small nucleolar RNA snoR135: a 140-nucleotide RNA sequence from Phaseolus vulgaris. A search with the family's covariance model found it, with a score of 96 bits. The family's RNA type in Rfam is H/ACA-box small nucleolar RNA. Its family is annotated with nucleolus and RNA processing in the Gene Ontology.
RNA sequence: UUUGUGGGGAUUGUGUGUAACAAUGUUUUGCUGUAAUAUUUUGCAUUACUCUGGAAGAGUUCCCCAAAACAAAUUUGGGGAAGAUGGGCAGUUGUAUUUCACUUUGAUGUGAAAAUAACAACAAUCAUCUCCCCACAAUU
Number, nucleotide and partner (000 for none) at each position: 001u000002u000003u000004g000005u000006g065007g064008g063009g062010a061011u000012u000013g000014u000015g046016u045017g044018u043019a042020a041021c000022a000023a000024u000025g000026u000027u000028u000029u000030g000031c000032u000033g000034u000035a000036a000037u000038a000039u000040u000041u020042u019043g018044c017045a016046u015047u000048a000049c000050u000051c000052u000053g000054g000055a000056a000057g000058a000059g000060u000061u010062c009063c008064c007065c006066a000067a000068a000069a000070c000071a000072a000073a000074u000075u000076u000077g134078g133079g132080g131081a000082a130083g129084a128085u127086g126087g125088g000089c000090a000091g122092u121093u120094g119095u000096a000097u000098u000099u000100c000101a000102c000103u000104u000105u000106g000107a000108u000109g000110u000111g000112a000113a000114a000115a000116u000117a000118a000119c094120a093121a092122c091123a000124a000125u087126c086127a085128u084129c083130u082131c080132c079133c078134c077135a000136c000137a000138a000139u000140u000